[Rfam]
RNA sequence: GAAAGGGUAUGCACAAAAAGCAUGCCUGGGCUGGGAUAUUGGGGAAAGAAAGUACCCGGUAGGACGAAACCACACAUCUAUCGUCCACAGCCUCAAUUAGG
Dot-bracket structure: ....((((((((.......))))))))((((((......................................................))))))........
Numbered sequence: 001g002a003a004a005g006g007g008u009a010u011g012c013a014c015a016a017a018a019a020g021c022a023u024g025c026c027u028g029g030g031c032u033g034g035g036a037u038a039u040u041g042g043g044g045a046a047a048g049a050a051a052g053u054a055c056c057c058g059g060u061a062g063g064a065c066g067a068a069a070c071c072a073c074a075c076a077u078c079u080a081u082c083g084u085c086c087a088c089a090g091c092c093u094c095a096a097u098u099a100g101g
Stems, first nucleotide, its partner, number of pairs: 005027008028093006

Background
The record is a 101-nucleotide RNA from Mediterraneibacter hominis, which matches "S4-Clostridia ribosomal protein leader" in Rfam. Its Rfam clan is "Ribosomal Protein S4 Leader clan". A reference for the family is Eckert and Weinberg (2020), "Discovery of 20 novel ribosomal leader candidates in bacteria and archaea", BMC Microbiol. By type it is a cis-regulatory leader. It scores 39 bits against the family's covariance model. Lineage of the source: Bacteria > Bacillati > Clostridia > Lachnospiraceae > Mediterraneibacter.